[Rfam]
Rfam assigns this 74-nucleotide RNA sequence from Rattus norvegicus to the family "mir-879 microRNA precursor family". Rfam's curators put it in the seed alignment. The family's consensus secondary structure was predicted with RNAalifold.
RNA sequence: UUCUAGAUCCAGAGGCUUAUAGCUCUAAGCCUUGGAUAAAAGAGGCUUAUGGCUUCAAGCUUUCGGAGCUGGCG
Numbered sequence: 001u002u003c004u005a006g007a008u009c010c011a012g013a014g015g016c017u018u019a020u021a022g023c024u025c026u027a028a029g030c031c032u033u034g035g036a037u038a039a040a041a042g043a044g045g046c047u048u049a050u051g052g053c054u055u056c057a058a059g060c061u062u063u064c065g066g067a068g069c070u071g072g073c074g
Base pairs, nucleotide, nucleotide: 001074003072004071005070006069008067009066010065012063013062014061015060016059017058018057021054022053023052024051026049027048028047029046030045031044032043033042

Overview
Taxonomically the source falls in Rattus (Eukaryota, Chordata, Dipnotetrapodomorpha, Muroidea). Its family is annotated with miRNA-mediated post-transcriptional gene silencing and RISC complex in the Gene Ontology. Rfam 15.1 lists 7 matches to the family in 7 species.